[Rfam]
The record is a 99-nucleotide RNA sequence from Salinisphaera sp. Q1T1-3, which matches "TPP riboswitch aptamer (THI element)" in Rfam. Vitamin B(1) in its active form thiamin pyrophosphate (TPP) is an essential coenzyme that is synthesised by coupling of pyrimidine and thiazole moieties in bacteria. It scores 63 bits against the family's covariance model. Rfam links the family to the GO term thiamine pyrophosphate binding. Lineage of the source: Bacteria > Pseudomonadati > Gammaproteobacteria > Salinisphaerales > Salinisphaera.
RNA sequence: AACCGCACCUGGGGGAGCCCUUGGCUGAGAGGUUCCGUUGGAACGACCCCUGAACCUGAUCCGGAUGAUGCCGGCGUAGGAAAGGAAUAUCGCAUGUCG
Dot-bracket structure: .......(((((((..(((...)))......(((((...)))))..))))....((((..((((......))))..))))..)))..............